The record is a 210-nucleotide part of an RNA from Fusarium sp. NRRL 66182, which matches "Ascomycota telomerase RNA" in Rfam.
RNA sequence: UCCCUCACAGUUCUCCGGCCCUCGUUUUUCGCAAGAAAUGUCUAUUGCAGACCGUUCAUCCUUUUGGUUACCCACGCAUAUGCCGCUCCCGAGCCUGUAACAGGACCUCGUGUAUGCCGCAGCAGGAUUAUGCUGGUGUAUUGCGUCCUGUAGAGGAUGUACCAGGCAGGAUGGGUGAACGAGGCUCGGAACUUAACCCUAAGAAGAUAU
Numbered sequence: 001u002c003c004c005u006c007a008c009a010g011u012u013c014u015c016c017g018g019c020c021c022u023c024g025u026u027u028u029u030c031g032c033a034a035g036a037a038a039u040g041u042c043u044a045u046u047g048c049a050g051a052c053c054g055u056u057c058a059u060c061c062u063u064u065u066g067g068u069u070a071c072c073c074a075c076g077c078a079u080a081u082g083c084c085g086c087u088c089c090c091g092a093g094c095c096u097g098u099a100a101c102a103g104g105a106c107c108u109c110g111u112g113u114a115u116g117c118c119g120c121a122g123c124a125g126g127a128u129u130a131u132g133c134u135g136g137u138g139u140a141u142u143g144c145g146u147c148c149u150g151u152a153g154a155g156g157a158u159g160u161a162c163c164a165g166g167c168a169g170g171a172u173g174g175g176u177g178a179a180c181g182a183g184g185c186u187c188g189g190a191a192c193u194u195a196a197c198c199c200u201a202a203g204a205a206g207a208u209a210u
Base pairs, nucleotide, nucleotide: 009193010192011191015189016188017187018186

On this family, see Qi et al., Nucleic Acids Res 2013: "The common ancestral core of vertebrate and fungal telomerase RNAs". Rfam classes the family as a non-coding RNA gene. The pairing is the family consensus, mapped onto this sequence. Rfam 15.1 lists 475 matches to the family in 456 species. A search with the family's covariance model found it, with a score of 325 bits.